Record summary:
Rfam assigns this 96-nucleotide RNA sequence from Muraenolepis orangiensis to the family "Small nucleolar RNA U83B".
RNA sequence: UGUUUUUGGUGAUGAGACCACGGAAUCCUGCGCCAGGCAUGGCGCCCGAUCAAGCAUGAGGAUUAAUUUUCCAGCUGCCUUCCUUCUGAAACGACA
Numbered sequence: 001u002g003u004u005u006u007u008g009g010u011g012a013u014g015a016g017a018c019c020a021c022g023g024a025a026u027c028c029u030g031c032g033c034c035a036g037g038c039a040u041g042g043c044g045c046c047c048g049a050u051c052a053a054g055c056a057u058g059a060g061g062a063u064u065a066a067u068u069u070u071c072c073a074g075c076u077g078c079c080u081u082c083c084u085u086c087u088g089a090a091a092c093g094a095c096a
Stems, first nucleotide, its partner, number of pairs: 001096004
Rfam describes the family as follows. U83B belongs to the C/D family of snoRNAs. U83B like U83A has no documented RNA target and they share the same host gene with the C/D box snoRNA U43 (RPL3). N.B. U83A/B/C have no sequence similarity with the U83 snoRNA that was cloned by Jady and Kiss (2000). The family has 21 seed sequences and 966 matches in Rfam 15.1. The pairing is the family consensus, mapped onto this sequence. By type it is a C/D-box small nucleolar RNA. Taxonomically the source falls in Muraenolepis (Eukaryota, Bilateria, Euteleostomi, Teleostei). A reference for the family is Jady and Kiss (2000), "Characterisation of the U83 and U84 small nucleolar RNAs: two novel 2'-O-ribose methylation guide RNAs that lack complementarities to ribosomal RNAs", Nucleic Acids Res.